RNA: Eukaryotic large subunit ribosomal RNA, nucleotides 1 to 420
Organism: Ophiocordyceps camponoti-rufipedis
RNA sequence: UGACCUCGGAUCAGGCGGGGCCACCCGCUGAACUUAAGCAUAUCAAUAAGCGGAGGAAAAGAAACCAACAGGGAUUGCCCCAGUAACGGCGAGUGAAGCGGCAACAGCUCAGAUUUGAAAUCCGGCGCCCCCGCGGCGCCCGAGUUGUAAUCUGCAGAGGACGCCUCUGGCGCGGCGCCGUCCGAGUUCCCUGGAACGGGACGCCGGAGAGGGUGAGAGCCCCGUACGGUCGGACGCCCAGCCUGUGUGAGGCUCCUUCGGCGAGUCGAGUAGUUUGGGAAUGCUGCUCAAAACGGGAGGUAUACGCCUUCUAAAGCUAAAUACCGGCCGGAGACCGAUAGCGCACAAGUAGAGUGAUCGAAAGAUGAAAAGCACUUUGAAAAGAGGGUUAAACAGUACGUGAAAUUGUUGAAAGGGAAG
Numbered sequence: 001u002g003a004c005c006u007c008g009g010a011u012c013a014g015g016c017g018g019g020g021c022c023a024c025c026c027g028c029u030g031a032a033c034u035u036a037a038g039c040a041u042a043u044c045a046a047u048a049a050g051c052g053g054a055g056g057a058a059a060a061g062a063a064a065c066c067a068a069c070a071g072g073g074a075u076u077g078c079c080c081c082a083g084u085a086a087c088g089g090c091g092a093g094u095g096a097a098g099c100g101g102c103a104a105c106a107g108c109u110c111a112g113a114u115u116u117g118a119a120a121u122c123c124g125g126c127g128c129c130c131c132c133g134c135g136g137c138g139c140c141c142g143a144g145u146u147g148u149a150a151u152c153u154g155c156a157g158a159g160g161a162c163g164c165c166u167c168u169g170g171c172g173c174g175g176c177g178c179c180g181u182c183c184g185a186g187u188u189c190c191c192u193g194g195a196a197c198g199g200g201a202c203g204c205c206g207g208a209g210a211g212g213g214u215g216a217g218a219g220c221c222c223c224g225u226a227c228g229g230u231c232g233g234a235c236g237c238c239c240a241g242c243c244u245g246u247g248u249g250a251g252g253c254u255c256c257u258u259c260g261g262c263g264a265g266u267c268g269a270g271u272a273g274u275u276u277g278g279g280a281a282u283g284c285u286g287c288u289c290a291a292a293a294c295g296g297g298a299g300g301u302a303u304a305c306g307c308c309u310u311c312u313a314a315a316g317c318u319a320a321a322u323a324c325c326g327g328c329c330g331g332a333g334a335c336c337g338a339u340a341g342c343g344c345a346c347a348a349g350u351a352g353a354g355u356g357a358u359c360g361a362a363a364g365a366u367g368a369a370a371a372g373c374a375c376u377u378u379g380a381a382a383a384g385a386g387g388g389u390u391a392a393a394c395a396g397u398a399c400g401u402g403a404a405a406u407u408g409u410u411g412a413a414a415g416g417g418a419a420g
Stems, first nucleotide, its partner, number of pairs: 024055001025053005035042002065072002076103004086094002106318004112152004118146002121143002124140004157259002159256003164252004169243003174238002178233003182229002186202001188201004205209001212222002268289007295312005352359002375386004